[Rfam]
Rfam assigns this 117-nucleotide RNA from Brassica rapa to the family "MIR162_1 microRNA precursor family".
RNA sequence: GUUGAAGUCGCUGGAGGCAGCGGUUCAUCGAUCAAUUCCUGUGAAAAAUGAUGUUGGAAACAAUUUACAUGGGAAGCAUGAAUCGAUCGAUAAACCUCUGCAUCCAGUGCUUCUCCU
Numbered sequence: 001g002u003u004g005a006a007g008u009c010g011c012u013g014g015a016g017g018c019a020g021c022g023g024u025u026c027a028u029c030g031a032u033c034a035a036u037u038c039c040u041g042u043g044a045a046a047a048a049u050g051a052u053g054u055u056g057g058a059a060a061c062a063a064u065u066u067a068c069a070u071g072g073g074a075a076g077c078a079u080g081a082a083u084c085g086a087u088c089g090a091u092a093a094a095c096c097u098c099u100g101c102a103u104c105c106a107g108u109g110c111u112u113c114u115c116c117u
Stems, first nucleotide, its partner, number of pairs: 013105003018100003022096004027091007036082003

Taxonomically the source falls in Brassica (Eukaryota, Streptophyta, Pentapetalae, rosids).